[Rfam]
RNA sequence: GUAGGUUGAGGUAGUAGAUUGUAUAGUUUGGGGGUGACGCCCUGAGCUGGAGAUAACUAUACAGUCUACUGUCUUUCCUGC
Numbered sequence: 001g002u003a004g005g006u007u008g009a010g011g012u013a014g015u016a017g018a019u020u021g022u023a024u025a026g027u028u029u030g031g032g033g034g035u036g037a038c039g040c041c042c043u044g045a046g047c048u049g050g051a052g053a054u055a056a057c058u059a060u061a062c063a064g065u066c067u068a069c070u071g072u073c074u075u076u077c078c079u080g081c
Base pairs, nucleotide, nucleotide: 001081002080003079004078005077008075009074010073011072012071013070014069015068016067017066018065019064020063021062022061023060024059025058026057027056032042033041034040035039
let-7 microRNA precursor family: an 81-nucleotide sequence from Eptatretus burgeri. The family's consensus secondary structure was predicted with RNAalifold. The source organism's lineage runs through Eukaryota, Opisthokonta, Bilateria, Vertebrata and Eptatretus. This family represents the microRNAs (miRNA) let-7 and mir-98. let-7 was identified from a study of developmental timing in C. elegans, and was later shown to be part of a much larger class of non-coding RNAs termed miRNAs.